This 142-nucleotide RNA from Anaerosalibacter bizertensis belongs to the Rfam family "Ribosomal protein L10 leader". The family's RNA type in Rfam is cis-regulatory leader. A search with the family's covariance model found it, with a score of 89 bits. The literature on the family includes a 1994 paper in Prog Nucleic Acid Res Mol Biol by Zengel and Lindahl, "Diverse mechanisms for regulating ribosomal protein synthesis in Escherichia coli".
[Rfam]
RNA sequence: GUUAAUUAAAUAUAGUUGCCGUAGACCGUAGGAACCUAUAGGGUUUAAAUAUUCCUACCGAGGUGAGAAUUUUGAUUUAUAAAUCAUAAAUUAUGAAAUCAAUGUCUCUCUGUGUCUACGGAGAGACUUUUUAUAUGUGCAU
Numbered sequence: 001g002u003u004a005a006u007u008a009a010a011u012a013u014a015g016u017u018g019c020c021g022u023a024g025a026c027c028g029u030a031g032g033a034a035c036c037u038a039u040a041g042g043g044u045u046u047a048a049a050u051a052u053u054c055c056u057a058c059c060g061a062g063g064u065g066a067g068a069a070u071u072u073u074g075a076u077u078u079a080u081a082a083a084u085c086a087u088a089a090a091u092u093a094u095g096a097a098a099u100c101a102a103u104g105u106c107u108c109u110c111u112g113u114g115u116c117u118a119c120g121g122a123g124a125g126a127c128u129u130u131u132u133a134u135a136u137g138u139g140c141a142u
Stems, first nucleotide, its partner, number of pairs: 028058006034044003104127010